[Rfam]
RNA: Small nucleolar RNA Z122
RNA sequence: UUUGGGAAAUGAUGCCAAAAAUCGAAAAGAGUGACUGAAGCAUUAGUUCUGCUGAAUAUUAUUUUGCACGUCAAUCUGAUCCCAAU
Numbered sequence: 001u002u003u004g005g006g007a008a009a010u011g012a013u014g015c016c017a018a019a020a021a022u023c024g025a026a027a028a029g030a031g032u033g034a035c036u037g038a039a040g041c042a043u044u045a046g047u048u049c050u051g052c053u054g055a056a057u058a059u060u061a062u063u064u065u066g067c068a069c070g071u072c073a074a075u076c077u078g079a080u081c082c083c084a085a086u
Stems, first nucleotide, its partner, number of pairs: 002085006